[Rfam]
Shown here is a 379-nucleotide RNA from Aliiruegeria haliotis, a member of the family "Bacterial RNase P class A". Its family is annotated with ribonuclease P activity, tRNA processing and dimeric ribonuclease P complex in the Gene Ontology. It scores 281 bits against the family's covariance model.

RNA sequence: GCGGAUGGCUGGAUGGCCGCGGGGCGGGGCGACCCGCCGCGAGGAAAGUCCGGACUCCCUGAAGCAACGGUGCCGGGUAACGCCCGGGCGGGGAAACCCGACGGAAAGCGCCACAGAGAACAGACGGCCCUGCAUGCAGGGUCAUGGUGAAACGGUGGGGUAAGAGCCCACCGCGGGGCUGGCAACAGUCCCGGCACGGCAAGCCCCACCGGGAGCAAUGCCACAUAGGACCUCCGCGGGGCAUGUCCCCAGGGCCGCUUCAGCCCCAGGCAGGUCGGGUAGGCAGCUUGAGCGUGUCGGUAACGGCACGCCUAGAGGAAUGGUCGUCGAAGGGGCGCAAGCCCCGGAACAGAAUCCGGCUUACAGGCCAUCCGCGCAC
Numbered sequence: 001g002c003g004g005a006u007g008g009c010u011g012g013a014u015g016g017c018c019g020c021g022g023g024g025c026g027g028g029g030c031g032a033c034c035c036g037c038c039g040c041g042a043g044g045a046a047a048g049u050c051c052g053g054a055c056u057c058c059c060u061g062a063a064g065c066a067a068c069g070g071u072g073c074c075g076g077g078u079a080a081c082g083c084c085c086g087g088g089c090g091g092g093g094a095a096a097c098c099c100g101a102c103g104g105a106a107a108g109c110g111c112c113a114c115a116g117a118g119a120a121c122a123g124a125c126g127g128c129c130c131u132g133c134a135u136g137c138a139g140g141g142u143c144a145u146g147g148u149g150a151a152a153c154g155g156u157g158g159g160g161u162a163a164g165a166g167c168c169c170a171c172c173g174c175g176g177g178g179c180u181g182g183c184a185a186c187a188g189u190c191c192c193g194g195c196a197c198g199g200c201a202a203g204c205c206c207c208a209c210c211g212g213g214a215g216c217a218a219u220g221c222c223a224c225a226u227a228g229g230a231c232c233u234c235c236g237c238g239g240g241g242c243a244u245g246u247c248c249c250c251a252g253g254g255c256c257g258c259u260u261c262a263g264c265c266c267c268a269g270g271c272a273g274g275u276c277g278g279g280u281a282g283g284c285a286g287c288u289u290g291a292g293c294g295u296g297u298c299g300g301u302a303a304c305g306g307c308a309c310g311c312c313u314a315g316a317g318g319a320a321u322g323g324u325c326g327u328c329g330a331a332g333g334g335g336c337g338c339a340a341g342c343c344c345c346g347g348a349a350c351a352g353a354a355u356c357c358g359g360c361u362u363a364c365a366g367g368c369c370a371u372c373c374g375c376g377c378a379c
Base pairs, nucleotide, nucleotide: 001375002374003373004372005371006370007369008368009367010366011364012328013327014326015325016324017323018322020041021040023038024037025036026035027034028033046362047361048360050359051358052357053356054355055215056214057213058212064260068211069210070209071208072207073087074086075085076084077083088102089100090099091098092097103206104205108204109203110200111199112198125146126145127142128141129140130139131138132137154172155171156170157169158168159167173195174193175192176191177190178189179188180187181186219285220284221283222282229276230275231274232273233272252266253265254264255263292311293310294309295308296307297306298305299304
Pairs were carried over by alignment from the consensus structure, which is taken from published work.